Description:
This 86-nucleotide sequence from Roseateles asaccharophilus belongs to the Rfam family "c-di-GMP-I riboswitch aptamer". NCBI's taxonomy places the organism under Bacteria, Pseudomonadati, Betaproteobacteria, Burkholderiales, Roseateles.

[Rfam]
RNA sequence: CAUUACCAAAGGCAAAGCCGGCGCGAGCCGGUGACGCAAAGCCUCCGGUCUCGCCCGCUCUGGGCCGAGAUAGCGGGGUUGCCGGA
Numbered sequence: 001c002a003u004u005a006c007c008a009a010a011g012g013c014a015a016a017g018c019c020g021g022c023g024c025g026a027g028c029c030g031g032u033g034a035c036g037c038a039a040a041g042c043c044u045c046c047g048g049u050c051u052c053g054c055c056c057g058c059u060c061u062g063g064g065c066c067g068a069g070a071u072a073g074c075g076g077g078g079u080u081g082c083c084g085g086a
Base pairs, nucleotide, nucleotide: 012037013036017032018031019030020029021028022027040080041079042078043077045076046075047074048071049070050069053065054064055063056062